[Rfam]
RNA sequence: AAAAUUAGGAGCUUUCUCUCCCCAGUUCUUCCUGGAGUUGGGAAAAGCUGGGUUGAGAAGGUGAAAAAAAAAAAAA
Numbered sequence: 001a002a003a004a005u006u007a008g009g010a011g012c013u014u015u016c017u018c019u020c021c022c023c024a025g026u027u028c029u030u031c032c033u034g035g036a037g038u039u040g041g042g043a044a045a046a047g048c049u050g051g052g053u054u055g056a057g058a059a060g061g062u063g064a065a066a067a068a069a070a071a072a073a074a075a076a
Base pairs, nucleotide, nucleotide: 014059015058016057017056018055021052022051023050024049025048029044030043031042032041033040034039